[Rfam]
RNA sequence: AUUCCAUGAUGAAUAUAAAAAUGACAAGCAUAUGGCUGAAUUUAACGGUGAUGUCGUUUUUACUGCUGAGAUGU
Numbered sequence: 001a002u003u004c005c006a007u008g009a010u011g012a013a014u015a016u017a018a019a020a021a022u023g024a025c026a027a028g029c030a031u032a033u034g035g036c037u038g039a040a041u042u043u044a045a046c047g048g049u050g051a052u053g054u055c056g057u058u059u060u061u062a063c064u065g066c067u068g069a070g071a072u073g074u
Stems, first nucleotide, its partner, number of pairs: 001074002003071002
Rfam assigns this 74-nucleotide sequence from Erinaceus europaeus to the family "Small nucleolar RNA SNORD27". Its family is annotated with RNA processing and nucleolus in the Gene Ontology. Rfam classes the family as a C/D-box small nucleolar RNA. A search with the family's covariance model found it, with a score of 68 bits. The family has 8 seed sequences and 218 matches in Rfam 15.1. The literature on the family includes a 1996 paper in Nature by Tycowski et al., "A mammalian gene with introns instead of exons generating stable RNA products".